[Rfam]
RNA: FMN riboswitch aptamer (RFN element)
RNA sequence: UACAUGCUCCGGGGUCGGUGCGAUUCCGAACCGGCGGUGACAGUCCGCGACCCGCCUACCUGGCGGUCGAUCCGGUGGAAUUCCGGGACCGACGGUCAAAGUCCGGAUGGGAGGCGCAUGUG
Numbered sequence: 001u002a003c004a005u006g007c008u009c010c011g012g013g014g015u016c017g018g019u020g021c022g023a024u025u026c027c028g029a030a031c032c033g034g035c036g037g038u039g040a041c042a043g044u045c046c047g048c049g050a051c052c053c054g055c056c057u058a059c060c061u062g063g064c065g066g067u068c069g070a071u072c073c074g075g076u077g078g079a080a081u082u083c084c085g086g087g088a089c090c091g092a093c094g095g096u097c098a099a100a101g102u103c104c105g106g107a108u109g110g111g112a113g114g115c116g117c118a119u120g121u122g
Stems, first nucleotide, its partner, number of pairs: 003120005009114002016028003030102002032091002034048004043089002052066002071087005093105003